[Rfam]
RNA: FMN riboswitch aptamer (RFN element)
Organism: Ureibacillus yapensis
RNA sequence: AUUCAUCUUCGGGGCAGGGUGAAAUUCCCGAUCGGCGGUAUUAGAAACCGCAUUUUCCGACCAUUCACUUGGAGGAUUUUGCAUAGCGUUUCUUCAGCCCGCGAGCUUUUUUAAAGCAGGAUUUGGUGCGAUUCCAAAGCCGACAGUAUAGUCUGGAUGGGAGAAGGUGAAG
Numbered sequence: 001a002u003u004c005a006u007c008u009u010c011g012g013g014g015c016a017g018g019g020u021g022a023a024a025u026u027c028c029c030g031a032u033c034g035g036c037g038g039u040a041u042u043a044g045a046a047a048c049c050g051c052a053u054u055u056u057c058c059g060a061c062c063a064u065u066c067a068c069u070u071g072g073a074g075g076a077u078u079u080u081g082c083a084u085a086g087c088g089u090u091u092c093u094u095c096a097g098c099c100c101g102c103g104a105g106c107u108u109u110u111u112u113a114a115a116g117c118a119g120g121a122u123u124u125g126g127u128g129c130g131a132u133u134c135c136a137a138a139g140c141c142g143a144c145a146g147u148a149u150a151g152u153c154u155g156g157a158u159g160g161g162a163g164a165a166g167g168u169g170a171a172g
Stems, first nucleotide, its partner, number of pairs: 003170008017029003031152002033142002035102004107116001122138005144155003